[Rfam]
RNA sequence: AGCAUUUGUGUGUGUUUCUUUGUUUGUAACAAAGCAUUACAGACAGGUACAAACAGUAAAUCUUCUUUUGUAACCUAGAACUCAUGAUUGAUAUAAGAUUUUGGUACAUAUGUGAAAGAAUAUG
Numbered sequence: 001a002g003c004a005u006u007u008g009u010g011u012g013u014g015u016u017u018c019u020u021u022g023u024u025u026g027u028a029a030c031a032a033a034g035c036a037u038u039a040c041a042g043a044c045a046g047g048u049a050c051a052a053a054c055a056g057u058a059a060a061u062c063u064u065c066u067u068u069u070g071u072a073a074c075c076u077a078g079a080a081c082u083c084a085u086g087a088u089u090g091a092u093a094u095a096a097g098a099u100u101u102u103g104g105u106a107c108a109u110a111u112g113u114g115a116a117a118g119a120a121u122a123u124g
Stems, first nucleotide, its partner, number of pairs: 002050001004048006011041001016036001018034006060121002063118002066115002069112002076103005081097002084094002
This 124-nucleotide RNA sequence from Dipodomys ordii belongs to the Rfam family "Small nucleolar RNA SNORA40". Rfam describes the family as follows. The snoRNA ACA 40 belongs to the H/ACA family of snoRNAs and guides the pseudouridylation of 28S rRNA subunit at position U4565. NB This family has a high threshold value to exclude a large number of closely related sequences that do not appear to have conserved H and ACA boxes, and may be pseudogenes. The family has 28 seed sequences and 2,550 matches in Rfam 15.1. Gene Ontology terms of the family: RNA processing and nucleolus.